Nucleotides: 129
Stems, first nucleotide, its partner, number of pairs: 003050005008044001012040001013035003018030001019028003052068006074115004078107004082102007
Number, partner (000 for none) and nucleotide at each position: 001000g002000u003050g004049c005048a006047c007046u008044u009000a010000a011000a012040a013035c014034a015033g016000a017000u018030g019028g020027u021026u022000u023000a024000a025000u026021a027020g028019u029000u030018c031000c032000c033015u034014u035013g036000g037000c038000u039000u040012u041000g042000a043000c044008a045000c046007g047006g048005u049004g050003c051000u052068a053067g054066a055065g056064u057063g058000a059000u060000g061000u062000g063057u064056g065055u066054u067053c068052u069000u070000u071000c072000c073000c074115u075114c076113u077112g078107c079106a080105u081104u082102g083101a084100a085099a086098g087097g088096a089000c090000u091000g092000u093000u094000u095000a096088u097087c098086c099085u100084u101083u102082u103000a104081a105080a106079u107078g108000c109000a110000u111000u112077c113076a114075g115074a116000a117000a118000g119000u120000c121000a122000g123000c124000a125000c126000a127000u128000u129000a